[Rfam]
RNA sequence: GCAAACAAACAACCUGUUCUUUUUUGACUUCUUUUUUCUCCACUAAAUUUGGAGGCAGCCUCGUUUGCGGAAGAUAAGUCAAAAACGAACAGGAAGCCUCCCACUGGGAGGCUUUUUUAU
Number, nucleotide and partner (000 for none) at each position: 001g000002c000003a000004a000005a000006c000007a000008a000009a000010c000011a000012a000013c000014c000015u000016g090017u089018u088019c087020u000021u085022u084023u083024u082025u081026g080027a079028c078029u077030u076031c000032u074033u073034u072035u000036u070037u069038c000039u053040c052041c051042a050043c000044u000045a000046a000047a000048u000049u000050u042051g041052g040053a039054g065055g064056c063057a000058g062059c000060c000061u000062c058063g056064u055065u054066u000067g000068c000069g037070g036071a000072a034073g033074a032075u000076a030077a029078g028079u027080c026081a025082a024083a023084a022085a021086c000087g019088a018089a017090c016091a000092g000093g000094a114095a113096g112097c111098c110099u109100c108101c107102c106103a000104c000105u000106g102107g101108g100109a099110g098111g097112c096113u095114u094115u000116u000117u000118u000119a000120u000